[Rfam]
RNA: small nucleolar RNA snoR127
Organism: Gossypium anomalum
RNA sequence: CUGGAAUGAUGCUUCAUUAGCCAAAUCAGACUUUUUGAUGUGCUCCAUAAGGCAUCAGCUUCAAAGCUAUUUUCAUGAUGUGUUUUUUUUAUAAGCGCAAAGGUUACCUCUUAGUAACUCUAGUCUAGCUUUGUAUGGGAUGCCUUUUGUUGAAGUGCAUUCUCUGACGAUACCUUCGGGAUUGGUUGCUUGUCUGACCAGA
Numbered sequence: 001c002u003g004g005a006a007u008g009a010u011g012c013u014u015c016a017u018u019a020g021c022c023a024a025a026u027c028a029g030a031c032u033u034u035u036u037g038a039u040g041u042g043c044u045c046c047a048u049a050a051g052g053c054a055u056c057a058g059c060u061u062c063a064a065a066g067c068u069a070u071u072u073u074c075a076u077g078a079u080g081u082g083u084u085u086u087u088u089u090u091a092u093a094a095g096c097g098c099a100a101a102g103g104u105u106a107c108c109u110c111u112u113a114g115u116a117a118c119u120c121u122a123g124u125c126u127a128g129c130u131u132u133g134u135a136u137g138g139g140a141u142g143c144c145u146u147u148u149g150u151u152g153a154a155g156u157g158c159a160u161u162c163u164c165u166g167a168c169g170a171u172a173c174c175u176u177c178g179g180g181a182u183u184g185g186u187u188g189c190u191u192g193u194c195u196g197a198c199c200a201g202a
Stems, first nucleotide, its partner, number of pairs: 001201004